RNA sequence: UUAAAACUGGAUCUGGGUUGUUCCCACCCAGAUCACCUACAUGGUGUUGUACACUAUUAUUACGGUAAUCUUGUACGCCAGUUUUAUAC
Numbered sequence: 001u002u003a004a005a006a007c008u009g010g011a012u013c014u015g016g017g018u019u020g021u022u023c024c025c026a027c028c029c030a031g032a033u034c035a036c037c038u039a040c041a042u043g044g045u046g047u048u049g050u051a052c053a054c055u056a057u058u059a060u061u062a063c064g065g066u067a068a069u070c071u072u073g074u075a076c077g078c079c080a081g082u083u084u085u086a087u088a089c
Base pairs, nucleotide, nucleotide: 002086003085004084005083006082007081008080010034011033012032013031014030015029016028017027018026035045036044037043046078047077049076050075051074052073056069057068058067059066

Record summary:
Rfam assigns this 89-nucleotide RNA from Enterovirus alpharhino to the family "Enterovirus 5' cloverleaf cis-acting replication element". Rfam classes the family as a cis-regulatory element. Gene Ontology term of the family: negative stranded viral RNA replication. Rfam's curators put it in the seed alignment. This family represents a cis-regulatory element found at the 5' end of Enterovirus genomes. The element has a cloverleaf like secondary structure and is known to be a multifunctional cis-acting replication element (CRE), required for the initiation of negative strand RNA synthesis.